[Rfam]
RNA sequence: AUGAAGGUAAAGGGAGAGACUACUUAAAUGUAGCGCCGAAGGAGCAAGCUAUAUAGUGAAUCUCUCAGGCAAAAGAACCUUUACUGGACG
Numbered sequence: 001a002u003g004a005a006g007g008u009a010a011a012g013g014g015a016g017a018g019a020c021u022a023c024u025u026a027a028a029u030g031u032a033g034c035g036c037c038g039a040a041g042g043a044g045c046a047a048g049c050u051a052u053a054u055a056g057u058g059a060a061u062c063u064c065u066c067a068g069g070c071a072a073a074a075g076a077a078c079c080u081u082u083a084c085u086g087g088a089c090g
Stems, first nucleotide, its partner, number of pairs: 006085008020033004035070003038066002042064003048057002
Glycine riboswitch aptamer: a 90-nucleotide RNA sequence from Vulcanibacillus modesticaldus. The pairing is the family consensus, mapped onto this sequence. It scores 74 bits against the family's covariance model. NCBI's taxonomy places the organism under Bacteria, Bacillati, Caryophanales, Bacillaceae, Vulcanibacillus.